[Rfam]
RNA sequence: CCGCACUCCUUUAAACCCCCCGUGAGCUGCGUCUAUCUAGCUCCUGGGACAAGAAGGAGUGCAAGAGAAAGCCAAGAACUUUCCAAAGCUGCAUGUCUUCACAGUGACACUCAGCUAUUUCACCUCUUGAACAUUG
Numbered sequence: 001c002c003g004c005a006c007u008c009c010u011u012u013a014a015a016c017c018c019c020c021c022g023u024g025a026g027c028u029g030c031g032u033c034u035a036u037c038u039a040g041c042u043c044c045u046g047g048g049a050c051a052a053g054a055a056g057g058a059g060u061g062c063a064a065g066a067g068a069a070a071g072c073c074a075a076g077a078a079c080u081u082u083c084c085a086a087a088g089c090u091g092c093a094u095g096u097c098u099u100c101a102c103a104g105u106g107a108c109a110c111u112c113a114g115c116u117a118u119u120u121c122a123c124c125u126c127u128u129g130a131a132c133a134u135u136g
Stems, first nucleotide, its partner, number of pairs: 003062004010054003019048004025042003067135002073129005087116005095108002099104001
Dot-bracket structure: ..((((...(((......((((..(((............)))..))))...)))....))))....((....(((((.........(((((...((..(....)..))...)))))........)))))....)).